mir-160 microRNA precursor family: a 90-nucleotide RNA from Musa acuminata.
Rfam links the family to the GO terms miRNA-mediated post-transcriptional gene silencing and RISC complex.
The family has 7 seed sequences and 1,502 matches in Rfam 15.1.
On this family, see Rhoades et al., Cell 2002: "Prediction of plant microRNA targets".
The family's consensus secondary structure was predicted with PFOLD.
The source organism's lineage runs through Eukaryota, Viridiplantae, Embryophyta, Magnoliopsida and Musa acuminata.
RNA sequence: UUGUGCCUGGCUCCCUGUACGCCACACAUGUAGAUCGAUAUCUAUGGGGAGAUUGGCUACUGUGGGUGGCGUGCAAGGAGCCAAGCACGC
Numbered sequence: 001u002u003g004u005g006c007c008u009g010g011c012u013c014c015c016u017g018u019a020c021g022c023c024a025c026a027c028a029u030g031u032a033g034a035u036c037g038a039u040a041u042c043u044a045u046g047g048g049g050a051g052a053u054u055g056g057c058u059a060c061u062g063u064g065g066g067u068g069g070c071g072u073g074c075a076a077g078g079a080g081c082c083a084a085g086c087a088c089g090c
Base pairs, nucleotide, nucleotide: 002089003088004087005086006085008083009082010081011080012079013078014077016075017074018073019072020071021070022069023068024067027064028063029062